Guanidine-I riboswitch aptamer: a 97-nucleotide RNA sequence from Desulfofarcimen acetoxidans. Rfam describes the family as follows. This family represents a conserved RNA structure found upstream of the ykkC and yxkD genes in Bacillus subtilis and related genes in other bacteria. NCBI's taxonomy places the organism under Bacteria, Bacillati, Clostridia, Peptococcaceae, Desulfofarcimen acetoxidans. The literature on the family includes a 2017 paper in Structure by Reiss et al., "Structural Basis for Ligand Binding to the Guanidine-I Riboswitch". The base pairs follow the family's consensus structure.
RNA sequence: UAACAUUGUUUCUAGGGUUCCGCGAUUAAACUAUCGGACAGGUCCGAGAGAAACUGCACGUAUAUCGUGUUCACGGAGGGACAAAAGCCCGGGAGGA
Numbered sequence: 001u002a003a004c005a006u007u008g009u010u011u012c013u014a015g016g017g018u019u020c021c022g023c024g025a026u027u028a029a030a031c032u033a034u035c036g037g038a039c040a041g042g043u044c045c046g047a048g049a050g051a052a053a054c055u056g057c058a059c060g061u062a063u064a065u066c067g068u069g070u071u072c073a074c075g076g077a078g079g080g081a082c083a084a085a086a087g088c089c090c091g092g093g094a095g096g097a
Stems, first nucleotide, its partner, number of pairs: 008054005015045002020042002022039001023036004056070005072092001074095001078090003